Annotation
The family of this 118-nucleotide RNA sequence from Trueperella bernardiae is "SAM (S-adenosyl methionine) riboswitch aptamer". The base pairs follow the family's consensus structure, which is taken from published work. The organism belongs to Trueperella, within Bacteria. It scores 70 bits against the family's covariance model.
RNA sequence: GAUCAAGAAGAUCAGUCGCAAGCCCUUCGGCAGACUGACUGGCAACCGCGCGUCGCGCACGGUGCCCCCGAAGGAAGAUCUGUCCCGGGUGGAAUUCGCCUCCGGGAAAGAGCGAUCA
Numbered sequence: 001g002a003u004c005a006a007g008a009a010g011a012u013c014a015g016u017c018g019c020a021a022g023c024c025c026u027u028c029g030g031c032a033g034a035c036u037g038a039c040u041g042g043c044a045a046c047c048g049c050g051c052g053u054c055g056c057g058c059a060c061g062g063u064g065c066c067c068c069c070g071a072a073g074g075a076a077g078a079u080c081u082g083u084c085c086c087g088g089g090u091g092g093a094a095u096u097c098g099c100c101u102c103c104g105g106g107a108a109a110g111a112g113c114g115a116u117c118a
Stems, first nucleotide, its partner, number of pairs: 001080004009040001012038005022031001041066003046062003050058002083107007091100002